About this RNA: A member of the RNA family "Guanidine-I riboswitch aptamer" from Ruminiclostridium cellulolyticum, 104 nucleotides long.
RNA sequence: CAUAUAGUUUUAUAGGGUUCCGCAGUUUAAUUUAAACAACUGGUCUGGUCCGAGAUAAAACGCACAGUUUAAUGUGUUCACGGAAGGAUAAAAGCCUGGGAGAU
Numbered sequence: 001c002a003u004a005u006a007g008u009u010u011u012a013u014a015g016g017g018u019u020c021c022g023c024a025g026u027u028u029a030a031u032u033u034a035a036a037c038a039a040c041u042g043g044u045c046u047g048g049u050c051c052g053a054g055a056u057a058a059a060a061c062g063c064a065c066a067g068u069u070u071a072a073u074g075u076g077u078u079c080a081c082g083g084a085a086g087g088a089u090a091a092a093a094g095c096c097u098g099g100g101a102g103a104u
Stems, first nucleotide, its partner, number of pairs: 007061006015051002020048002022045001023042005062077005079099001081102001085097003
The pairing is the family consensus, mapped onto this sequence.